A member of the RNA family "Small nucleolar RNA Z13/snr52" from Sclerotinia trifoliorum, 100 nucleotides long. Pairs were carried over by alignment from the consensus structure, which was predicted with PFOLD. Its family is annotated with nucleolus and RNA processing in the Gene Ontology. The organism belongs to Sclerotinia, within Eukaryota. The family has 42 seed sequences and 1,203 matches in Rfam 15.1. Rfam classes the family as a C/D-box small nucleolar RNA.
RNA sequence: UUGUUUUAAAUGAUGAAAUAUUUCGGAUGUUAAAUCAUAUUGUCUCCGAGAGCGCAAAACCGUGUGGAGAUUUUCCGUUGCCUUCCUUCUGAUUCAGAUA
Numbered sequence: 001u002u003g004u005u006u007u008a009a010a011u012g013a014u015g016a017a018a019u020a021u022u023u024c025g026g027a028u029g030u031u032a033a034a035u036c037a038u039a040u041u042g043u044c045u046c047c048g049a050g051a052g053c054g055c056a057a058a059a060c061c062g063u064g065u066g067g068a069g070a071u072u073u074u075c076c077g078u079u080g081c082c083u084u085c086c087u088u089c090u091g092a093u094u095c096a097g098a099u100a
Stems, first nucleotide, its partner, number of pairs: 003099003024077004